The record is a 77-nucleotide sequence from Alligator mississippiensis, which matches "Mammalian CPEB3 ribozyme" in Rfam. The mammalian CPEB3 ribozyme is a self cleaving RNA located in the second intron of the CPEB3 gene which belongs to a family of genes regulating messenger RNA polyadenylation.

[Rfam]
RNA sequence: AGUUGAAAGUUCGAGGCCACAGCAGAAGCGCUUAUGGGACAGCCCUGUCAGAUUUCAAAGAAUCUGUGAAUUCUGCU
Numbered sequence: 001a002g003u004u005g006a007a008a009g010u011u012c013g014a015g016g017c018c019a020c021a022g023c024a025g026a027a028g029c030g031c032u033u034a035u036g037g038g039a040c041a042g043c044c045c046u047g048u049c050a051g052a053u054u055u056c057a058a059a060g061a062a063u064c065u066g067u068g069a070a071u072u073c074u075g076c077u
Stems, first nucleotide, its partner, number of pairs: 013045001015044003021077007028040001049066007